Source information: This 85-nucleotide RNA sequence from Lathyrus oleraceus belongs to the Rfam family "mir-156 microRNA precursor family". A search with the family's covariance model found it, with a score of 71 bits. Rfam describes the family as follows. This family represents the plant microRNA (miRNA) precursor mir-156. Gene Ontology terms of the family: RISC complex and miRNA-mediated post-transcriptional gene silencing.
[Rfam]
RNA sequence: UUGACAGAAGAGAGUGAGCACACAGAGACACUCGAUAUAGAAUUCUAUACCGGUGCAUUUGCGUGCUCACUGCUCUCUCUGUCAA
Numbered sequence: 001u002u003g004a005c006a007g008a009a010g011a012g013a014g015u016g017a018g019c020a021c022a023c024a025g026a027g028a029c030a031c032u033c034g035a036u037a038u039a040g041a042a043u044u045c046u047a048u049a050c051c052g053g054u055g056c057a058u059u060u061g062c063g064u065g066c067u068c069a070c071u072g073c074u075c076u077c078u079c080u081g082u083c084a085a
Stems, first nucleotide, its partner, number of pairs: 001085008010075003013071009023061003